[Rfam]
RNA sequence: CGGGGAAAGAAGACCCUGUUGAGCUUGACUCUAGUUUGACAUUGUGAAAAGACAUAGAGGGUGUAGAAUAAGUGGGAGCUUCGGCGCCGGUGAAAUACCACUACCUUUAUAGUUUUUUUACUUAUUCAAUUAAGCGGAGCUGGACUUCAUCGUCCACGUUCUAGAUUUAAGGUCCUUCGGGGCUGAUCCGGGUUGAAGACAUUGUCAGGUGGGGAGUUUGGCUGGGGCGGCACAUCUGUUAAAAGAUAACGCAGAUGUCCUAAGGGGGGCUCAUGGAGAACAGAAAUCUCCAGUAGAACAAAAGGGUAAAAGCCCCCUUGAUUUUGAUUUUCAGUGUGAAUACAAACCAUGAAAGUGUGGCCUAUCGAUCCUUUAGUCCCUCGGAAUUUGAGGCUAGAGGUGCCAGAAAAGUUACCACAGGGAUAACUGGCUUGUGGCAGUCAAGCGUUCAUAGCGACAUUGCUUUUUGAUCCUUCGAUGUCGGCUCUUCCUAUCAUACCGAAGCAGAAUUCGGUAAGCGUUGGAUUGUUCACCCACUAAUAGGGAACGUGAGCUGGGUUUAGACCGUCGUGAGACAGGUUAGUUUUACCCUA
Numbered sequence: 001c002g003g004g005g006a007a008a009g010a011a012g013a014c015c016c017u018g019u020u021g022a023g024c025u026u027g028a029c030u031c032u033a034g035u036u037u038g039a040c041a042u043u044g045u046g047a048a049a050a051g052a053c054a055u056a057g058a059g060g061g062u063g064u065a066g067a068a069u070a071a072g073u074g075g076g077a078g079c080u081u082c083g084g085c086g087c088c089g090g091u092g093a094a095a096u097a098c099c100a101c102u103a104c105c106u107u108u109a110u111a112g113u114u115u116u117u118u119u120a121c122u123u124a125u126u127c128a129a130u131u132a133a134g135c136g137g138a139g140c141u142g143g144a145c146u147u148c149a150u151c152g153u154c155c156a157c158g159u160u161c162u163a164g165a166u167u168u169a170a171g172g173u174c175c176u177u178c179g180g181g182g183c184u185g186a187u188c189c190g191g192g193u194u195g196a197a198g199a200c201a202u203u204g205u206c207a208g209g210u211g212g213g214g215a216g217u218u219u220g221g222c223u224g225g226g227g228c229g230g231c232a233c234a235u236c237u238g239u240u241a242a243a244a245g246a247u248a249a250c251g252c253a254g255a256u257g258u259c260c261u262a263a264g265g266g267g268g269g270c271u272c273a274u275g276g277a278g279a280a281c282a283g284a285a286a287u288c289u290c291c292a293g294u295a296g297a298a299c300a301a302a303a304g305g306g307u308a309a310a311a312g313c314c315c316c317c318u319u320g321a322u323u324u325u326g327a328u329u330u331u332c333a334g335u336g337u338g339a340a341u342a343c344a345a346a347c348c349a350u351g352a353a354a355g356u357g358u359g360g361c362c363u364a365u366c367g368a369u370c371c372u373u374u375a376g377u378c379c380c381u382c383g384g385a386a387u388u389u390g391a392g393g394c395u396a397g398a399g400g401u402g403c404c405a406g407a408a409a410a411g412u413u414a415c416c417a418c419a420g421g422g423a424u425a426a427c428u429g430g431c432u433u434g435u436g437g438c439a440g441u442c443a444a445g446c447g448u449u450c451a452u453a454g455c456g457a458c459a460u461u462g463c464u465u466u467u468u469g470a471u472c473c474u475u476c477g478a479u480g481u482c483g484g485c486u487c488u489u490c491c492u493a494u495c496a497u498a499c500c501g502a503a504g505c506a507g508a509a510u511u512c513g514g515u516a517a518g519c520g521u522u523g524g525a526u527u528g529u530u531c532a533c534c535c536a537c538u539a540a541u542a543g544g545g546a547a548c549g550u551g552a553g554c555u556g557g558g559u560u561u562a563g564a565c566c567g568u569c570g571u572g573a574g575a576c577a578g579g580u581u582a583g584u585u586u587u588a589c590c591c592u593a
Stems, first nucleotide, its partner, number of pairs: 003592003007587002015421004020417002022413005028217004035209007044121010054110007071102005078085002125197005135190004143154003171184005220233001221231003234256006259360002265317006271297002274292006298307002322346003327341004348357003371399006379393004430471001432469001434468001436464006445455002482557001483555004487549001488546005495520001498515006522536003526532001563581004567576003
Eukaryotic large subunit ribosomal RNA: a 593-nucleotide part of an RNA from Sugiyamaella lignohabitans. Clan: LSU clan. The organism belongs to Sugiyamaella, within Eukaryota. The base pairs follow the family's consensus structure, which is taken from published work.